[Rfam]
RNA sequence: AAGCUAGAGGCUAGACACCUUCGGUGGUGGGUAUAGGUUUUUGUCCCUGGUUGCUGGGUUUGUGUUGUGCGAUAUUAAAACAAAAGCCAUGAGACUUGUAAGCCCAGUGUGUAAAGAUACACUCUGAGUUAUAACUCAGAGGCACAGUU
Numbered sequence: 001a002a003g004c005u006a007g008a009g010g011c012u013a014g015a016c017a018c019c020u021u022c023g024g025u026g027g028u029g030g031g032u033a034u035a036g037g038u039u040u041u042u043g044u045c046c047c048u049g050g051u052u053g054c055u056g057g058g059u060u061u062g063u064g065u066u067g068u069g070c071g072a073u074a075u076u077a078a079a080a081c082a083a084a085a086g087c088c089a090u091g092a093g094a095c096u097u098g099u100a101a102g103c104c105c106a107g108u109g110u111g112u113a114a115a116g117a118u119a120c121a122c123u124c125u126g127a128g129u130u131a132u133a134a135c136u137c138a139g140a141g142g143c144a145c146a147g148u149u
Stems, first nucleotide, its partner, number of pairs: 003070002006068001008066002017059003022056006028049001030047002033044003086143003107122006123140007
The record is a 149-nucleotide RNA from Microcebus murinus, which matches "Small Cajal body specific RNA 1" in Rfam. The base pairs follow the family's consensus structure, which was predicted with RNAalifold. scaRNAs are a specific class of small nuclear RNAs which localise to the Cajal bodies and guide the modification of RNA polymerase II transcribed spliceosomal RNAs U1, U2, U4, U5 and U12. ACA35 belong to the H/ACA box class of guide RNAs as it has the predicted hairpin-hinge-hairpin-tail structure, conserved H/ACA-box motifs and is found associated with GAR1. It is predicted to guide pseudouridylation of the U2 spliceosomal snRNA at residue U89. On this family, see Darzacq et al., EMBO J 2002: "Cajal body-specific small nuclear RNAs: a novel class of 2'-O-methylation and pseudouridylation guide RNAs".